[Rfam]
RNA sequence: GGCUCGAUGAUUGCAAGCCUCAAUUUGGCAGUAUACGCUAUUCUGAAUAUUUCAAUUGGCUGAGAACUAAUUAUUAUGAGAGCU
Numbered sequence: 001g002g003c004u005c006g007a008u009g010a011u012u013g014c015a016a017g018c019c020u021c022a023a024u025u026u027g028g029c030a031g032u033a034u035a036c037g038c039u040a041u042u043c044u045g046a047a048u049a050u051u052u053c054a055a056u057u058g059g060c061u062g063a064g065a066a067c068u069a070a071u072u073a074u075u076a077u078g079a080g081a082g083c084u
Base pairs, nucleotide, nucleotide: 001084002083003082004081005080